[Rfam]
RNA sequence: GCAUGGCCGAAUUCUGUUUUACUCUUUCUGUAGUAAAGACAGUCAGACACCAUGCCAGAUUACUGCGCUCUCUCUCUCUCUCCUUUUGUCUCAGUGGUACAUCACUGUGUGUUUAUCACUGAUUUGGGGGAAAAGCGAACAAUC
Dot-bracket structure: ((((((.......((((((.................)))))).......))))))............(.((.(((((.........((..(((((((((..............)))))))))..))))))).).).).......

This 144-nucleotide RNA from Pangasianodon hypophthalmus belongs to the Rfam family "Small nucleolar RNA SNORA15". The family has 22 seed sequences and 974 matches in Rfam 15.1. A reference for the family is Huttenhofer et al. (2001), "RNomics: an experimental approach that identifies 201 candidates for novel, small, non-messenger RNAs in mouse", EMBO J. Rfam's curators write: ACA15 is a member of the H/ACA class of snoRNA that guide the sites of modification of uridines to pseudouridines. Rfam links the family to the GO terms RNA processing and nucleolus. Pairs were carried over by alignment from the consensus structure, which was predicted with RNAfold. The family's RNA type in Rfam is H/ACA-box small nucleolar RNA.